[Rfam]
RNA sequence: UUGUAGGUCGCCUGCCAGGUGGUCGAGUCGCCGGCCAGGACGUGCGCGCCGAAGUACUCGCCGUCGGCGAGCACGCCGAGCACGGUGUCGUCGCCGUAUUCGCCGGUGCCGAUCUUGUUGACCCUGCCGUGGGCGAUGAGCACGACCUGGUCGGCGGUUUGGCCUGCGGUGGCGAUCACCUGGCCCGGCUCGAUCUCCCGCUGCACGAAGCGAUCCGCGAGCGCGCCGAGCACGGCGUCGUCGUCGAAUCCCCGCAGCAGCGGGAGUUCUCGCAGUUCCUGCGGGAUGACCCGGACCUCGGCGCCGGUGUUGGUGAAGGUGACCCGGCCAUCGCCGAGGGUGUAGCUGAGGCGGCGGUUGACGCGGUACGCGCCGCCGGCGGCCUGCACCCAUGGCAGCAUCCGCAGCAGCCAGCGCGAGGUGAUGCCUUGCAUCUGCGGGACGGACUUGGUCGUGGUGGCCAGGUUCCGGGCCGCCGCCGUGCUCAGGCUCAACUGCGGCGCAUCGC
Numbered sequence: 001u002u003g004u005a006g007g008u009c010g011c012c013u014g015c016c017a018g019g020u021g022g023u024c025g026a027g028u029c030g031c032c033g034g035c036c037a038g039g040a041c042g043u044g045c046g047c048g049c050c051g052a053a054g055u056a057c058u059c060g061c062c063g064u065c066g067g068c069g070a071g072c073a074c075g076c077c078g079a080g081c082a083c084g085g086u087g088u089c090g091u092c093g094c095c096g097u098a099u100u101c102g103c104c105g106g107u108g109c110c111g112a113u114c115u116u117g118u119u120g121a122c123c124c125u126g127c128c129g130u131g132g133g134c135g136a137u138g139a140g141c142a143c144g145a146c147c148u149g150g151u152c153g154g155c156g157g158u159u160u161g162g163c164c165u166g167c168g169g170u171g172g173c174g175a176u177c178a179c180c181u182g183g184c185c186c187g188g189c190u191c192g193a194u195c196u197c198c199c200g201c202u203g204c205a206c207g208a209a210g211c212g213a214u215c216c217g218c219g220a221g222c223g224c225g226c227c228g229a230g231c232a233c234g235g236c237g238u239c240g241u242c243g244u245c246g247a248a249u250c251c252c253c254g255c256a257g258c259a260g261c262g263g264g265a266g267u268u269c270u271c272g273c274a275g276u277u278c279c280u281g282c283g284g285g286a287u288g289a290c291c292c293g294g295a296c297c298u299c300g301g302c303g304c305c306g307g308u309g310u311u312g313g314u315g316a317a318g319g320u321g322a323c324c325c326g327g328c329c330a331u332c333g334c335c336g337a338g339g340g341u342g343u344a345g346c347u348g349a350g351g352c353g354g355c356g357g358u359u360g361a362c363g364c365g366g367u368a369c370g371c372g373c374c375g376c377c378g379g380c381g382g383c384c385u386g387c388a389c390c391c392a393u394g395g396c397a398g399c400a401u402c403c404g405c406a407g408c409a410g411c412c413a414g415c416g417c418g419a420g421g422u423g424a425u426g427c428c429u430u431g432c433a434u435c436u437g438c439g440g441g442a443c444g445g446a447c448u449u450g451g452u453c454g455u456g457g458u459g460g461c462c463a464g465g466u467u468c469c470g471g472g473c474c475g476c477c478g479c480c481g482u483g484c485u486c487a488g489g490c491u492c493a494a495c496u497g498c499g500g501c502g503c504a505u506c507g508c
Stems, first nucleotide, its partner, number of pairs: 006390003010387002014383003018328001021325002023322003028316002035313004040308002046304007054233002057230004062225003065111004075103001077102004082097005117222003122217001127212001130209001131206001133204003138199001140197001144195001150191001154189002157186001160183001162177001165174003234296001236294001240290006249283001251281001254278001256277003260271001262269001329342004351380001352378006362370002391431002394428004399423003403418003407415001437476004443470004447465006477507002480502003484499001486497003
The family of this 508-nucleotide RNA from Saccharopolyspora elongata is "Saccharopolyspora sRNA 350".
Rfam 15.1 lists 1,170 matches to the family in 705 species.
For this family Rfam cites "Prediction and characterization of small non-coding RNAs related to secondary metabolites in Saccharopolyspora erythraea" (Liu et al., PLoS One, 2013).
Pairs were carried over by alignment from the consensus structure, which was predicted with RNAfold.
The organism belongs to Saccharopolyspora, within Bacteria.